[Rfam]
RNA sequence: UUCUCGCUCAAAGGAUCGCAUUCAAAGCUCACACACAGAAUAUUCCUAACGGGAUAUUCUCCUCUUCUCAAGAGAGGUAAUGGCUUUGGGAGAAAGUCCCCGGACAUCCUGACCUUCUUAUCGGUCAGGCAUUGCGGAAACGCGCCGCCAUAGAAGCAAUUCGAUAGCGGCUGACUGCCCUAUUCCCUCCCAGUGUCCUGUUUGUAUCCGACGCCUUCAAGGUGGAAACAAUGGUGGUAUAACUGGGUGCUGGAGAGGGGUUUAUCUGGGUUGCUAUUCGUCGUGUUUGGAUAGUCAUGCGAUUGCUUGGUUCCCUUGCAGGAACUGGGUAACUCAAUGGGGCUCAUUCUUGAGGCGAGA
Numbered sequence: 001u002u003c004u005c006g007c008u009c010a011a012a013g014g015a016u017c018g019c020a021u022u023c024a025a026a027g028c029u030c031a032c033a034c035a036c037a038g039a040a041u042a043u044u045c046c047u048a049a050c051g052g053g054a055u056a057u058u059c060u061c062c063u064c065u066u067c068u069c070a071a072g073a074g075a076g077g078u079a080a081u082g083g084c085u086u087u088g089g090g091a092g093a094a095a096g097u098c099c100c101c102g103g104a105c106a107u108c109c110u111g112a113c114c115u116u117c118u119u120a121u122c123g124g125u126c127a128g129g130c131a132u133u134g135c136g137g138a139a140a141c142g143c144g145c146c147g148c149c150a151u152a153g154a155a156g157c158a159a160u161u162c163g164a165u166a167g168c169g170g171c172u173g174a175c176u177g178c179c180c181u182a183u184u185c186c187c188u189c190c191c192a193g194u195g196u197c198c199u200g201u202u203u204g205u206a207u208c209c210g211a212c213g214c215c216u217u218c219a220a221g222g223u224g225g226a227a228a229c230a231a232u233g234g235u236g237g238u239a240u241a242a243c244u245g246g247g248u249g250c251u252g253g254a255g256a257g258g259g260g261u262u263u264a265u266c267u268g269g270g271u272u273g274c275u276a277u278u279c280g281u282c283g284u285g286u287u288u289g290g291a292u293a294g295u296c297a298u299g300c301g302a303u304u305g306c307u308u309g310g311u312u313c314c315c316u317u318g319c320a321g322g323a324a325c326u327g328g329g330u331a332a333c334u335c336a337a338u339g340g341g342g343c344u345c346a347u348u349c350u351u352g353a354g355g356c357g358a359g360a
Base pairs, nucleotide, nucleotide: 002360003359004358005357006356007355008353009352010351011350014304015303016302017301018300019299022090023088024087025086026085027084028083038059039058040057041056042055043054044053045052046051095344096343098342099341100340101339133144134143135142136141182275184273189270190269191268192267193266243253244252245251246250306329307328308327309326310325311324312323313322314321
RNA: RNase MRP
Organism: Aspergillus oryzae